[Rfam]
Source information
The family of this 92-nucleotide sequence from a Moraxellaceae bacterium is "SAM-I/IV (S-adenosyl methionine) riboswitch aptamer". Pairs were carried over by alignment from the consensus structure, which is taken from published work. Its Rfam clan is "SAM clan".
RNA sequence: CAAUAGCAUCAGGAAUCCCACGCGGGUACCAACCGGGUCACAGACUAACGGUGGUUCAGCAUGCGGGCCGCAAGGCCAAAAGUCUCCUCAUU
Numbered sequence: 001c002a003a004u005a006g007c008a009u010c011a012g013g014a015a016u017c018c019c020a021c022g023c024g025g026g027u028a029c030c031a032a033c034c035g036g037g038u039c040a041c042a043g044a045c046u047a048a049c050g051g052u053g054g055u056u057c058a059g060c061a062u063g064c065g066g067g068c069c070g071c072a073a074g075g076c077c078a079a080a081a082g083u084c085u086c087c088u089c090a091u092u
Stems, first nucleotide, its partner, number of pairs: 006064004015027001017026003028055003033051003036046003043086001066077004

Taxonomically the source falls in Moraxellaceae (Bacteria, Pseudomonadati, Pseudomonadota, Moraxellales). A search with the family's covariance model found it, with a score of 45 bits. The family has 417 seed sequences and 567 matches in Rfam 15.1.